[Rfam]
RNA: Manganese Mn2+ riboswitch aptamer (yybP-ykoY)
Organism: Photobacterium profundum
RNA sequence: CCUUUGGGGAGUAGCCUCUCGAUCUAUCGAGAUAAUCGUCAACAUACUUGAAGCAAAAUCUUCAUGGCGAUUAUGACUCACACUAAUCCUACUUUAGUGAGUUU
Numbered sequence: 001c002c003u004u005u006g007g008g009g010a011g012u013a014g015c016c017u018c019u020c021g022a023u024c025u026a027u028c029g030a031g032a033u034a035a036u037c038g039u040c041a042a043c044a045u046a047c048u049u050g051a052a053g054c055a056a057a058a059u060c061u062u063c064a065u066g067g068c069g070a071u072u073a074u075g076a077c078u079c080a081c082a083c084u085a086a087u088c089c090u091a092c093u094u095u096a097g098u099g100a101g102u103u104u
Stems, first nucleotide, its partner, number of pairs: 019030003032074010049064005075103007